mir-590 microRNA precursor family: an 85-nucleotide sequence from Ornithorhynchus anatinus.
Lineage of the source: Eukaryota > Bilateria > Chordata > Vertebrata > Ornithorhynchus.
The family's consensus secondary structure was predicted with RNAalifold.
Rfam 15.1 lists 119 matches to the family in 117 species.
RNA sequence: AGCCAAUCAGAAAUGAGCUUAUCCAUAAAAGUACAGUAUCGUCAGUAAACCUGUACUUUUAUGGAUAAGCUAGUCUCUGAUUGAA
Numbered sequence: 001a002g003c004c005a006a007u008c009a010g011a012a013a014u015g016a017g018c019u020u021a022u023c024c025a026u027a028a029a030a031g032u033a034c035a036g037u038a039u040c041g042u043c044a045g046u047a048a049a050c051c052u053g054u055a056c057u058u059u060u061a062u063g064g065a066u067a068a069g070c071u072a073g074u075c076u077c078u079g080a081u082u083g084a085a
Stems, first nucleotide, its partner, number of pairs: 004083008013074002016071007024063007032055005
Dot-bracket structure: ...((((((((.((.(((((((.(((((((.(((((..............))))).))))))).))))))).)).))))))))..